RNA sequence: CACUUAUCAAGAAAGACCGAGGGAUAUGGCCCGCUGAAGUCUUAGCAACCCUGGCAAGCAGGGUGCUACUUCCAUCCCGCAAACGGCGCACGGCCGUGGGAAAGAUGAGAU
Number, nucleotide and partner (000 for none) at each position: 001c000002a000003c109004u108005u107006a106007u105008c104009a000010a000011g000012a000013a043014a042015g041016a040017c039018c000019g000020a000021g032022g031023g030024a000025u000026a075027u074028g073029g072030c023031c022032c021033g000034c000035u000036g000037a000038a000039g017040u016041c015042u014043u013044a067045g066046c065047a064048a000049c063050c062051c061052u060053g059054g000055c000056a000057a000058g000059c053060a052061g051062g050063g049064u047065g046066c045067u044068a000069c000070u000071u103072c029073c028074a027075u026076c100077c099078c098079g097080c096081a000082a000083a000084c000085g000086g000087c000088g000089c000090a000091c000092g000093g000094c000095c000096g080097u079098g078099g077100g076101a000102a000103a071104g008105a007106u006107g005108a004109g003110a000111u000

Shown here is a 111-nucleotide sequence from Adhaeribacter aerolatus, a member of the family "SAM riboswitch aptamer (S box leader)".
The match comes from Rfam's covariance-model search (67 bits).
Gene Ontology term of the family: regulation of gene expression.